The record is a 69-nucleotide sequence from Mycobacterium celatum, which matches "Transposase-2 RNA" in Rfam. Rfam's curators put it in the seed alignment. The base pairs follow the family's consensus structure, which is taken from published work. The family's RNA type in Rfam is small RNA. The source organism's lineage runs through Bacteria, Bacillati, Actinomycetota, Mycobacteriales and Mycobacterium.
RNA sequence: GAAGCGUCAACCCCGCACCACCACCCGGUGGAUCAGACGGGGACCGCCUCACCGCAAGGCGAGGCUGCC
Numbered sequence: 001g002a003a004g005c006g007u008c009a010a011c012c013c014c015g016c017a018c019c020a021c022c023a024c025c026c027g028g029u030g031g032a033u034c035a036g037a038c039g040g041g042g043a044c045c046g047c048c049u050c051a052c053c054g055c056a057a058g059g060c061g062a063g064g065c066u067g068c069c
Base pairs, nucleotide, nucleotide: 011042012041013040014039015038018031019030020029021028046065047064048063049062050061052059053058